[Rfam]
RNA: Purine riboswitch aptamer
RNA sequence: UAUAAUAUAAACAAUAACUUUCGUAUAAGCUUAAUAAUACGGUUUAAGCGUCUCUACAAUAUCACCGUAAAUGAUAUUUACUAUGAAGAAAAGUCCACGAAGG
Numbered sequence: 001u002a003u004a005a006u007a008u009a010a011a012c013a014a015u016a017a018c019u020u021u022c023g024u025a026u027a028a029g030c031u032u033a034a035u036a037a038u039a040c041g042g043u044u045u046a047a048g049c050g051u052c053u054c055u056a057c058a059a060u061a062u063c064a065c066c067g068u069a070a071a072u073g074a075u076a077u078u079u080a081c082u083a084u085g086a087a088g089a090a091a092a093g094u095c096c097a098c099g100a101a102g103g
Base pairs, nucleotide, nucleotide: 019088020087021086022085023084024083025082029049030048031047032046033045034044058079059077060076061075062074063073064072